[Rfam]
Rfam assigns this 187-nucleotide RNA sequence from Glycine max to the family "MIR159 microRNA precursor family". A reference for the family is Sunkar and Zhu (2004), "Novel and stress-regulated microRNAs and other small RNAs from Arabidopsis", Plant Cell. Rfam links the family to the GO terms miRNA-mediated post-transcriptional gene silencing and RISC complex. The base pairs follow the family's consensus structure, which was predicted with WAR.
RNA sequence: AAUCCCAAUUUGGAGUUCUCAUCACACAAUUCUGAAAGGAUAUGAUGGCAAACCUCUGCUGCUAGUUCAUGGAUACCUCUGGUUUCGUAACAACAUACGUUCGAAGUCAAAGGUUUGCAUGAAUUGGGAGAUGAGUUUACCUUGAUCUUUUUGUAUUGCAGUGAAGGGAGCUCCAGAGGGGGUCUUU
Numbered sequence: 001a002a003u004c005c006c007a008a009u010u011u012g013g014a015g016u017u018c019u020c021a022u023c024a025c026a027c028a029a030u031u032c033u034g035a036a037a038g039g040a041u042a043u044g045a046u047g048g049c050a051a052a053c054c055u056c057u058g059c060u061g062c063u064a065g066u067u068c069a070u071g072g073a074u075a076c077c078u079c080u081g082g083u084u085u086c087g088u089a090a091c092a093a094c095a096u097a098c099g100u101u102c103g104a105a106g107u108c109a110a111a112g113g114u115u116u117g118c119a120u121g122a123a124u125u126g127g128g129a130g131a132u133g134a135g136u137u138u139a140c141c142u143u144g145a146u147c148u149u150u151u152u153g154u155a156u157u158g159c160a161g162u163g164a165a166g167g168g169a170g171c172u173c174c175a176g177a178g179g180g181g182g183u184c185u186u187u
Stems, first nucleotide, its partner, number of pairs: 013173008023163003027158002035150001059130002062127003068121004076113001
Dot-bracket structure: ............((((((((..(((.((......(.......................((.(((...((((....(....................................)....))))...))).))...................)......))..)))..))))))))..............